RNA sequence: CCAGGCCCAAGGUCACAAUGCUCGCCACUAGCAGAUGCGCGCUUGUGUCUAGUCCACGCAGAGCGUAUUCUCACCUCGCGAGCGGGUUAAGGUCCUGGCAUUCAAACCCCCACAACCGGCCCUAAAGGGUCUGCGCGUAAACGCGUACCGAGCUCGACCAGAAAUGCGCCUGCGCGGCCUUGCCUCACGGCGACCCAGAGACGCCGCGGGCCAGAUCAGGCCCCCGGCAGAGGGUGCAGGCUGCGCUGGGCUUGGUAGGAGCUCGGGGGUAGCCUCGUGCCCCGUACGGGGGGUGGCCCCCUCCCGUAGCCACGGACGUCGUCGGUAGCUUUCCUCCGGGAAUCCGGGCACAGAGACUUUAGUGCAAUUUGGUGACAAUCCUGCUCGCAAGAGCAACUGCUUGGUGACAGGCAGGGGAUUAACUCGAUCAGGACUACUCUGGGUCGUGG
Numbered sequence: 001c002c003a004g005g006c007c008c009a010a011g012g013u014c015a016c017a018a019u020g021c022u023c024g025c026c027a028c029u030a031g032c033a034g035a036u037g038c039g040c041g042c043u044u045g046u047g048u049c050u051a052g053u054c055c056a057c058g059c060a061g062a063g064c065g066u067a068u069u070c071u072c073a074c075c076u077c078g079c080g081a082g083c084g085g086g087u088u089a090a091g092g093u094c095c096u097g098g099c100a101u102u103c104a105a106a107c108c109c110c111c112a113c114a115a116c117c118g119g120c121c122c123u124a125a126a127g128g129g130u131c132u133g134c135g136c137g138u139a140a141a142c143g144c145g146u147a148c149c150g151a152g153c154u155c156g157a158c159c160a161g162a163a164a165u166g167c168g169c170c171u172g173c174g175c176g177g178c179c180u181u182g183c184c185u186c187a188c189g190g191c192g193a194c195c196c197a198g199a200g201a202c203g204c205c206g207c208g209g210g211c212c213a214g215a216u217c218a219g220g221c222c223c224c225c226g227g228c229a230g231a232g233g234g235u236g237c238a239g240g241c242u243g244c245g246c247u248g249g250g251c252u253u254g255g256u257a258g259g260a261g262c263u264c265g266g267g268g269g270u271a272g273c274c275u276c277g278u279g280c281c282c283c284g285u286a287c288g289g290g291g292g293g294u295g296g297c298c299c300c301c302u303c304c305c306g307u308a309g310c311c312a313c314g315g316a317c318g319u320c321g322u323c324g325g326u327a328g329c330u331u332u333c334c335u336c337c338g339g340g341a342a343u344c345c346g347g348g349c350a351c352a353g354a355g356a357c358u359u360u361a362g363u364g365c366a367a368u369u370u371g372g373u374g375a376c377a378a379u380c381c382u383g384c385u386c387g388c389a390a391g392a393g394c395a396a397c398u399g400c401u402u403g404g405u406g407a408c409a410g411g412c413a414g415g416g417g418a419u420u421a422a423c424u425c426g427a428u429c430a431g432g433a434c435u436a437c438u439c440u441g442g443g444u445c446g447u448g449g
Stems, first nucleotide, its partner, number of pairs: 001449003007442003012376004016371003020083005034068001094432005109269003118131005132147006148266007168251005377420006
RNA: Nuclear RNase P
Organism: Vanrija humicola